[Rfam]
Record summary:
Rfam assigns this 375-nucleotide RNA from Anaerovirgula multivorans to the family "Bacterial RNase P class A".
RNA sequence: CGAGUAAGUCAGAUGAUCGCGUACACAGUUUAUCUGUGGACGAGGAAAGUCCGAGCUCCAGAGGGCAGGGUGCUGGGUAAUCCCCAGUGGAGGUGACUCCAAGGAAAGUGCAACAGAGAGAUACCGCCCUCUACAUCAAUAAAGUGAUAUUCACUUUACGUUGGUAGGGGGUAAGGGUGGAAAGGUGAGGUAAGAGCUCACCAGCAGCUAGGUGACUAGUUGGCUAUGUAAACCCCACCUGGAGCAAGACCAAGUAGGGACAAAAAAACGGCUGCCCGUCGUGUCCCGUGGUAGGUCGCUUGAGCCAAUUGGCAACAAUUGGCCUAGAUAGAUGAUCAUUUAAUACAGAACUCGGCUUAUAGAUUUACUCGCAUG
Numbered sequence: 001c002g003a004g005u006a007a008g009u010c011a012g013a014u015g016a017u018c019g020c021g022u023a024c025a026c027a028g029u030u031u032a033u034c035u036g037u038g039g040a041c042g043a044g045g046a047a048a049g050u051c052c053g054a055g056c057u058c059c060a061g062a063g064g065g066c067a068g069g070g071u072g073c074u075g076g077g078u079a080a081u082c083c084c085c086a087g088u089g090g091a092g093g094u095g096a097c098u099c100c101a102a103g104g105a106a107a108g109u110g111c112a113a114c115a116g117a118g119a120g121a122u123a124c125c126g127c128c129c130u131c132u133a134c135a136u137c138a139a140u141a142a143a144g145u146g147a148u149a150u151u152c153a154c155u156u157u158a159c160g161u162u163g164g165u166a167g168g169g170g171g172u173a174a175g176g177g178u179g180g181a182a183a184g185g186u187g188a189g190g191u192a193a194g195a196g197c198u199c200a201c202c203a204g205c206a207g208c209u210a211g212g213u214g215a216c217u218a219g220u221u222g223g224c225u226a227u228g229u230a231a232a233c234c235c236c237a238c239c240u241g242g243a244g245c246a247a248g249a250c251c252a253a254g255u256a257g258g259g260a261c262a263a264a265a266a267a268a269c270g271g272c273u274g275c276c277c278g279u280c281g282u283g284u285c286c287c288g289u290g291g292u293a294g295g296u297c298g299c300u301u302g303a304g305c306c307a308a309u310u311g312g313c314a315a316c317a318a319u320u321g322g323c324c325u326a327g328a329u330a331g332a333u334g335a336u337c338a339u340u341u342a343a344u345a346c347a348g349a350a351c352u353c354g355g356c357u358u359a360u361a362g363a364u365u366u367a368c369u370c371g372c373a374u375g
Stems, first nucleotide, its partner, number of pairs: 001371010011360001012340007020042003024038005047358003051355005056244004063277004068240005073087005088102001089100004103235002108233002110229003124176002126172009184202006204224001205222007248297004258286004268282005304323008
Dot-bracket structure: ((((((((((((((((((.(((.(((((.....))))).)))....[[[.[[[[[((((...[[[[.((((((((((.....)))))(((((....)))).)((...(((((...........(((((((((((.............................)))))))))..)).......((((((.......)))))).((((((((....))))))).)..)))..)))))))))))))...((((......((((......(((((.]]]]))))))))).......))))......((((((((....))))))))..........)))))))..........]]]]]]]].).))))))))))....

Gene Ontology terms of the family: ribonuclease P activity, tRNA processing and dimeric ribonuclease P complex. It is annotated as a ribozyme. Pairs were carried over by alignment from the consensus structure, which is taken from published work. It scores 311 bits against the family's covariance model. Ribonuclease P (RNase P) is a ubiquitous endoribonuclease, found in archaea, bacteria and eukarya as well as chloroplasts and mitochondria. Its best characterised activity is the generation of mature 5'-ends of tRNAs by cleaving the 5'-leader elements of precursor-tRNAs. Cellular RNase Ps are ribonucleoproteins.